[Rfam]
RNA: mir-128 microRNA precursor family
RNA sequence: GAGCGGCGGGAUAUGGGGCCGGGACACUGUCUGAGAGUUCUGUGAUUCUCACAGUGAACCGGUCUCUUUUUCAGCCCCUCA
Numbered sequence: 001g002a003g004c005g006g007c008g009g010g011a012u013a014u015g016g017g018g019c020c021g022g023g024a025c026a027c028u029g030u031c032u033g034a035g036a037g038u039u040c041u042g043u044g045a046u047u048c049u050c051a052c053a054g055u056g057a058a059c060c061g062g063u064c065u066c067u068u069u070u071u072c073a074g075c076c077c078c079u080c081a
Base pairs, nucleotide, nucleotide: 006075007074009072010071015066016065017064018063019062020061021060025056026055027054028053029052030051033050034049035048